[Rfam]
This 78-nucleotide sequence from Nitrosomonas eutropha belongs to the Rfam family "SAH (S-adenosyl-L-homocysteine) riboswitch aptamer". The source organism's lineage runs through Bacteria, Pseudomonadati, Nitrosomonadales, Nitrosomonadaceae and Nitrosomonas eutropha. The base pairs follow the family's consensus structure, which is taken from published work.

RNA sequence: UUGUACCGAGGAGCGCUGCAACGGUCUAUCUCGUGAGGCUCGGACAAAUGAACAACCCAACAACGGCGCUCUUUCACU
Numbered sequence: 001u002u003g004u005a006c007c008g009a010g011g012a013g014c015g016c017u018g019c020a021a022c023g024g025u026c027u028a029u030c031u032c033g034u035g036a037g038g039c040u041c042g043g044a045c046a047a048a049u050g051a052a053c054a055a056c057c058c059a060a061c062a063a064c065g066g067c068g069c070u071c072u073u074u075c076a077c078u
Base pairs, nucleotide, nucleotide: 002046003045004044006043007042008041009040022033023032024031